[Rfam]
RNA sequence: AUGUCGGGAGGCACCGGUGGGACGGUCGCCACGAAUAGACAUGAAACCCCCUGUCAAAAUGGGUGUUGUUCCGCGGCCCGGGCGGAACAGCA
Numbered sequence: 001a002u003g004u005c006g007g008g009a010g011g012c013a014c015c016g017g018u019g020g021g022a023c024g025g026u027c028g029c030c031a032c033g034a035a036u037a038g039a040c041a042u043g044a045a046a047c048c049c050c051c052u053g054u055c056a057a058a059a060u061g062g063g064u065g066u067u068g069u070u071c072c073g074c075g076g077c078c079c080g081g082g083c084g085g086a087a088c089a090g091c092a
Base pairs, nucleotide, nucleotide: 001042002041003040004039005038010030011029012028013026014025015024016023064092065091066090067089068088069087070086071085072084073083